[Rfam]
RNA sequence: CGGUCGUACUUUCACUACGGAUCGUCCGGCACGUACCUGCCGGUGAAGGAGAUGCUC
Numbered sequence: 001c002g003g004u005c006g007u008a009c010u011u012u013c014a015c016u017a018c019g020g021a022u023c024g025u026c027c028g029g030c031a032c033g034u035a036c037c038u039g040c041c042g043g044u045g046a047a048g049g050a051g052a053u054g055c056u057c
Stems, first nucleotide, its partner, number of pairs: 009049006026043006
RNA: msiK RNA
Organism: Naasia lichenicola